Vibrio RNA AS9: a 104-nucleotide sequence from Dethiobacter sp. The source organism's lineage runs through Bacteria, Dethiobacteria, Dethiobacterales, Dethiobacteraceae and Dethiobacter. The literature on the family includes a 2009 paper in Nucleic Acids Res by Liu et al., "Experimental discovery of sRNAs in Vibrio cholerae by direct cloning, 5S/tRNA depletion and parallel sequencing". Pairs were carried over by alignment from the consensus structure, which was predicted with RNAfold. About the family: Identified by direct cloning an parallel sequencing experiments with 5S/tRNA depletion. The family's RNA type in Rfam is antisense RNA. A search with the family's covariance model found it, with a score of 52 bits.
RNA sequence: CUGGUUAGCCCGCUGUGCUUCCAGCGGAGCACAAAUCAGCCCGCGGCCAUAUUUUGCCAUGAAGUUAAUAGCUUCCGGCGUCACUUUUUCUGCCGCCAUCACUA
Numbered sequence: 001c002u003g004g005u006u007a008g009c010c011c012g013c014u015g016u017g018c019u020u021c022c023a024g025c026g027g028a029g030c031a032c033a034a035a036u037c038a039g040c041c042c043g044c045g046g047c048c049a050u051a052u053u054u055u056g057c058c059a060u061g062a063a064g065u066u067a068a069u070a071g072c073u074u075c076c077g078g079c080g081u082c083a084c085u086u087u088u089u090c091u092g093c094c095g096c097c098a099u100c101a102c103u104a
Base pairs, nucleotide, nucleotide: 003058004057005056007054008053010027011026012025013024014023015022035050036049039047040046041045066104067103069101071096072095075092077090078088080086